[Rfam]
RNA sequence: AACGCGCUCCGGGGUCAGUGCAAAUCUGAACCGGCGGUCACAGUCCGCGACCCGACGUCGUCCCCAGGGGCGGCGGAGGCUGAACCGGUGGGACUCCGGUACCGACGGUCACAGUCCGGAUGAGAGGCAGCGCGGG
Numbered sequence: 001a002a003c004g005c006g007c008u009c010c011g012g013g014g015u016c017a018g019u020g021c022a023a024a025u026c027u028g029a030a031c032c033g034g035c036g037g038u039c040a041c042a043g044u045c046c047g048c049g050a051c052c053c054g055a056c057g058u059c060g061u062c063c064c065c066a067g068g069g070g071c072g073g074c075g076g077a078g079g080c081u082g083a084a085c086c087g088g089u090g091g092g093a094c095u096c097c098g099g100u101a102c103c104g105a106c107g108g109u110c111a112c113a114g115u116c117c118g119g120a121u122g123a124g125a126g127g128c129a130g131c132g133c134g135g136g
Base pairs, nucleotide, nucleotide: 003134004133005132006131007130008129009127010126016028017027018026030115031114032104033103034048035047036046037045043102044101052079053078084100085099086098087097088096106118107117108116
About this RNA: FMN riboswitch aptamer (RFN element): a 136-nucleotide RNA sequence from Frigoribacterium sp. PhB160. From the family's description: The RFN element is a highly conserved domain that is found frequently in the 5'-untranslated regions of prokaryotic mRNAs that encode for flavin mononucleotide (FMN) biosynthesis and transport proteins. The family's consensus secondary structure is taken from published work. Its family is annotated with FMN binding in the Gene Ontology.